The family of this 577-nucleotide part of an RNA from Fumia xinanensis is "Bacterial small subunit ribosomal RNA".
The family's consensus secondary structure is taken from published work.
A reference for the family is Cannone et al. (2002), "The comparative RNA web (CRW) site: an online database of comparative sequence and structure information for ribosomal, intron, and other RNAs", BMC Bioinformatics.
The source organism's lineage runs through Bacteria, Bacillati, Eubacteriales, Oscillospiraceae and Fumia.

RNA sequence: UGACGGGGGCCCGCACAAGCAGUGGAGUAUGUGGUUUAAUUCGAAGCAACGCGAAGAACCUUACCAGGUCUUGACAUCCUAUGACCACCUAAGAGAUUAGGCUUUCCCUUCGGGGACAUAGAGACAGGUGGUGCAUGGUUGUCGUCAGCUCGUGUCGUGAGAUGUUGGGUUAAGUCCCGCAACGAGCGCAACCCUUAUGUUUAGUUGCUACGCAAGAGCACUCUAGACAGACUGCCGUUGACAAAACGGAGGAAGGUGGGGAUGACGUCAAAUCAUCAUGCCCCUUAUGACCUGGGCUACACACGUACUACAAUGGCUAUUAACAGAGGGCAGCGACUAGGCGACUAGAAGCAAAUCUCCAAAAAUAGUCUCAGUUCAGAUUGCAGGCUGCAACUCGCCUGCAUGAAGUCGGAAUUGCUAGUAAUCGCGGAUCAGCAUGCCGCGGUGAAUACGUUCCCGGGCCUUGUACACACCGCCCGUCACACCAUGAGAGUUGGCAACACCCGAAGUCAGUAGGCUAACGCAAGAAGCCGCUGCCGAAGGUGGGGUUGAUGAUUGGGGUGAAGUCGUAACAAGG
Numbered sequence: 001u002g003a004c005g006g007g008g009g010c011c012c013g014c015a016c017a018a019g020c021a022g023u024g025g026a027g028u029a030u031g032u033g034g035u036u037u038a039a040u041u042c043g044a045a046g047c048a049a050c051g052c053g054a055a056g057a058a059c060c061u062u063a064c065c066a067g068g069u070c071u072u073g074a075c076a077u078c079c080u081a082u083g084a085c086c087a088c089c090u091a092a093g094a095g096a097u098u099a100g101g102c103u104u105u106c107c108c109u110u111c112g113g114g115g116a117c118a119u120a121g122a123g124a125c126a127g128g129u130g131g132u133g134c135a136u137g138g139u140u141g142u143c144g145u146c147a148g149c150u151c152g153u154g155u156c157g158u159g160a161g162a163u164g165u166u167g168g169g170u171u172a173a174g175u176c177c178c179g180c181a182a183c184g185a186g187c188g189c190a191a192c193c194c195u196u197a198u199g200u201u202u203a204g205u206u207g208c209u210a211c212g213c214a215a216g217a218g219c220a221c222u223c224u225a226g227a228c229a230g231a232c233u234g235c236c237g238u239u240g241a242c243a244a245a246a247c248g249g250a251g252g253a254a255g256g257u258g259g260g261g262a263u264g265a266c267g268u269c270a271a272a273u274c275a276u277c278a279u280g281c282c283c284c285u286u287a288u289g290a291c292c293u294g295g296g297c298u299a300c301a302c303a304c305g306u307a308c309u310a311c312a313a314u315g316g317c318u319a320u321u322a323a324c325a326g327a328g329g330g331c332a333g334c335g336a337c338u339a340g341g342c343g344a345c346u347a348g349a350a351g352c353a354a355a356u357c358u359c360c361a362a363a364a365a366u367a368g369u370c371u372c373a374g375u376u377c378a379g380a381u382u383g384c385a386g387g388c389u390g391c392a393a394c395u396c397g398c399c400u401g402c403a404u405g406a407a408g409u410c411g412g413a414a415u416u417g418c419u420a421g422u423a424a425u426c427g428c429g430g431a432u433c434a435g436c437a438u439g440c441c442g443c444g445g446u447g448a449a450u451a452c453g454u455u456c457c458c459g460g461g462c463c464u465u466g467u468a469c470a471c472a473c474c475g476c477c478c479g480u481c482a483c484a485c486c487a488u489g490a491g492a493g494u495u496g497g498c499a500a501c502a503c504c505c506g507a508a509g510u511c512a513g514u515a516g517g518c519u520a521a522c523g524c525a526a527g528a529a530g531c532c533g534c535u536g537c538c539g540a541a542g543g544u545g546g547g548g549u550u551g552a553u554g555a556u557u558g559g560g561g562u563g564a565a566g567u568c569g570u571a572a573c574a575a576g577g
Stems, first nucleotide, its partner, number of pairs: 001470002003467003007464007015454002019418005024311001026309008034300002040055004064295007077124002079121005088101005105116004127284002130282004136278002138273003141269001143267002148187006154163003166179004193261004198229007208218002232252002235249005315370007328359003333352002338347003377408001382403007424446007473576001475573001478569002483563004488558003493553006501545004509538001511536004516532004522527001
The match comes from Rfam's covariance-model search (1588 bits).